Small nucleolar RNA SNORA1: a 130-nucleotide sequence. Pairs were carried over by alignment from the consensus structure, which was predicted with PFOLD. It is annotated as an H/ACA-box small nucleolar RNA. About the family: ACA1 is a member of the H/ACA class of snoRNA that guide the sites of modification of uridines to pseudouridines.
RNA sequence: UGCCUCAUUCUAGAGAAUGGGCACUGUUGAUCAUGGUGUCCAAAAAUAGUUAAUGUGGCUAAAUUGAGACAGGUUAUGCUUCCAUCACAGUAUGCAUAUUGCAGUGGUGACAAUGAGACCUGUAACAUUU
Numbered sequence: 001u002g003c004c005u006c007a008u009u010c011u012a013g014a015g016a017a018u019g020g021g022c023a024c025u026g027u028u029g030a031u032c033a034u035g036g037u038g039u040c041c042a043a044a045a046a047u048a049g050u051u052a053a054u055g056u057g058g059c060u061a062a063a064u065u066g067a068g069a070c071a072g073g074u075u076a077u078g079c080u081u082c083c084a085u086c087a088c089a090g091u092a093u094g095c096a097u098a099u100u101g102c103a104g105u106g107g108u109g110a111c112a113a114u115g116a117g118a119c120c121u122g123u124a125a126c127a128u129u130u
Stems, first nucleotide, its partner, number of pairs: 002059003006055003018042007069123005083109006